[Rfam]
RNA: Burkholderia RNA 7 (anti-hemB)
RNA sequence: UCCCCCGCUUCACCUCCCUGAGCGGGUGCCUUAUUCCUGUAAGGCAUGUUGCCCCCGGCCCCCCUUUGCCGGGGGCUUUUUUU
Numbered sequence: 001u002c003c004c005c006c007g008c009u010u011c012a013c014c015u016c017c018c019u020g021a022g023c024g025g026g027u028g029c030c031u032u033a034u035u036c037c038u039g040u041a042a043g044g045c046a047u048g049u050u051g052c053c054c055c056c057g058g059c060c061c062c063c064c065u066u067u068g069c070c071g072g073g074g075g076c077u078u079u080u081u082u083u
Stems, first nucleotide, its partner, number of pairs: 004026006028045007052075008